[Rfam]
RNA sequence: GUGGCUUUUACAUGAAUAUAGAUAAAGAUCCAUGCUUUGAAUAUGUUUUUGACAUUUGAAGCUUGUUGUGAAAGUGUAUUAGCCUACAGCAAAUUUAGUUUCCCUCGCUAUCCUGUUCUUCAAUUUUUAAUGAUGUUUCUUAGGACGUCGGGGAACAAUAUUU
Numbered sequence: 001g002u003g004g005c006u007u008u009u010a011c012a013u014g015a016a017u018a019u020a021g022a023u024a025a026a027g028a029u030c031c032a033u034g035c036u037u038u039g040a041a042u043a044u045g046u047u048u049u050u051g052a053c054a055u056u057u058g059a060a061g062c063u064u065g066u067u068g069u070g071a072a073a074g075u076g077u078a079u080u081a082g083c084c085u086a087c088a089g090c091a092a093a094u095u096u097a098g099u100u101u102c103c104c105u106c107g108c109u110a111u112c113c114u115g116u117u118c119u120u121c122a123a124u125u126u127u128u129a130a131u132g133a134u135g136u137u138u139c140u141u142a143g144g145a146c147g148u149c150g151g152g153g154a155a156c157a158a159u160a161u162u163u
Stems, first nucleotide, its partner, number of pairs: 001087002003084003009078005022069001024067002031065002034062005041057001043055001098156007106147002111145005120133003
Rfam assigns this 163-nucleotide sequence from Capsella rubella to the family "Small nucleolar RNA snoR136". By type it is an H/ACA-box small nucleolar RNA. Lineage of the source: Eukaryota > Embryophyta > Mesangiospermae > malvids > Capsella. A search with the family's covariance model found it, with a score of 110 bits.